[Rfam]
RNA sequence: UCCGUAGUAGCUCAGUGGUAGAGCAAUCGGCUGUUAACCGAUUGGUCGUAGGUUCGAGUCCUACCUCCGGAG
Numbered sequence: 001u002c003c004g005u006a007g008u009a010g011c012u013c014a015g016u017g018g019u020a021g022a023g024c025a026a027u028c029g030g031c032u033g034u035u036a037a038c039c040g041a042u043u044g045g046u047c048g049u050a051g052g053u054u055c056g057a058g059u060c061c062u063a064c065c066u067c068c069g070g071a072g
Base pairs, nucleotide, nucleotide: 001071002070003069004068006066007065010024011023012022013021026042027041028040029039030038048064049063050062051061052060

Shown here is a 72-nucleotide RNA sequence from Lysinibacillus composti, a member of the family "tRNA". The source organism's lineage runs through Bacteria, Bacillati, Bacilli, Bacillaceae and Lysinibacillus. Transfer RNA (tRNA) molecules are approximately 80 nucleotides in length. Their secondary structure includes four short double-helical elements and three loops (D, anti-codon, and T loops). Further hydrogen bonds mediate the characteristic L-shaped molecular structure. tRNAs have two regions of fundamental functional importance: the anti-codon, which is responsible for specific mRNA codon recognition, and the 3' end, to which the tRNAs corresponding amino acid is attached (by aminoacyl-tRNA synthetases). tRNAs cope with the degeneracy of the genetic code in two manners: having more than one tRNA (with a specific anti-codon) for a particular amino acid; and 'wobble' base-pairing, i.e. permitting non-standard base-pairing at the 3rd anti-codon position. The family's consensus secondary structure is taken from published work. The family is grouped with related families in Rfam's "tRNA clan". The match comes from Rfam's covariance-model search (70 bits).